A member of the RNA family "mir-7 microRNA precursor family" from Pleuronectes platessa, 90 nucleotides long. A search with the family's covariance model found it, with a score of 70 bits. Gene Ontology terms of the family: miRNA-mediated post-transcriptional gene silencing and RISC complex. About the family: This family represents the microRNA (miRNA) precursor mir-7. On this family, see Lagos-Quintana et al., Science 2001: "Identification of novel genes coding for small expressed RNAs".
RNA sequence: GGUGUGACCCUCUGUGGAAGACUAGUGAUUUUGUUGUUGUAAACUCACACUCUUGACAACAAGUCCCAGUCUACCUCACUGAGUCACGCC
Dot-bracket structure: .(((((((.(..((.((.(((((.(.(((((.((((((................))))))))))).)))))).)).))..).))))))).